[Rfam]
A member of the RNA family "Xanthomonas sRNA sX9" from Hydrogenophaga borbori, 88 nucleotides long.
A reference for the family is Schmidtke et al. (2011), "Genome-wide transcriptome analysis of the plant pathogen Xanthomonas identifies sRNAs with putative virulence functions", Nucleic Acids Res.
Taxonomically the source falls in Hydrogenophaga (Bacteria, Pseudomonadati, Betaproteobacteria, Burkholderiales).
The base pairs follow the family's consensus structure, which was predicted with RNAalifold.
It is annotated as a small RNA.

RNA sequence: ACGUACGGAGAGUACGUUCCGGUUCCUGUGCUCCGUCCGCCUGGCCUGGCACCCGCUCGCAACGCCUCCGGUGCUUGGCGUGCCAGCA
Dot-bracket structure: .(((((.....)))))...(((..(....)..)))..........(((((((...........................)))))))..